[Rfam]
RNA sequence: AGCUGAUGGGUUUGUUCUUCCUGCCAUCUCCUCCCGGCAGUGUCGAACGUUCAGCUGUUCCCCUCUGGAUGACGCGCCGCGCCCCCCGCGAGCGACGUCUCCAAACUUCUAAGGCCGGGCUUCGUGCCCGGCUUUUUUUU
Numbered sequence: 001a002g003c004u005g006a007u008g009g010g011u012u013u014g015u016u017c018u019u020c021c022u023g024c025c026a027u028c029u030c031c032u033c034c035c036g037g038c039a040g041u042g043u044c045g046a047a048c049g050u051u052c053a054g055c056u057g058u059u060c061c062c063c064u065c066u067g068g069a070u071g072a073c074g075c076g077c078c079g080c081g082c083c084c085c086c087c088g089c090g091a092g093c094g095a096c097g098u099c100u101c102c103a104a105a106c107u108u109c110u111a112a113g114g115c116c117g118g119g120c121u122u123c124g125u126g127c128c129c130g131g132c133u134u135u136u137u138u139u140u
Stems, first nucleotide, its partner, number of pairs: 001056005011047004066103004111135010

Annotation: The record is a 140-nucleotide sequence from Methylobrevis albus, which matches "Alphaproteobacterial ar15" in Rfam. Its Rfam clan is "suhB sRNA clan". The family has 61 seed sequences and 316 matches in Rfam 15.1. The pairing is the family consensus, mapped onto this sequence. The source organism's lineage runs through Bacteria, Pseudomonadati, Pseudomonadota, Pleomorphomonadaceae and Methylobrevis. A reference for the family is del Val et al. (2007), "Identification of differentially expressed small non-coding RNAs in the legume endosymbiont Sinorhizobium meliloti by comparative genomics", Mol Microbiol.